[Rfam]
RNA sequence: CACAUAUUUCGCCCAGGCGAAGCUCGACCGCCCGGUCAAGCGGUGACUGGCUUCAUUGAUGAGCACCGGAAUGCUUAUGGGGUCGAGCCGAUCUGCCGGGUUAUGCCGAUCGCCUGUCCA
Dot-bracket structure: ...............((((.........)))).............................................(((((......((.((.((........)).)).))))...)))

This 120-nucleotide sequence from Devosia enhydra belongs to the Rfam family "ALIL pseudoknot". Gene Ontology term of the family: positive regulation of translational frameshifting. Taxonomically the source falls in Devosia (Bacteria, Pseudomonadati, Pseudomonadota, Alphaproteobacteria). It is annotated as a cis-regulatory element. The match comes from Rfam's covariance-model search (85 bits).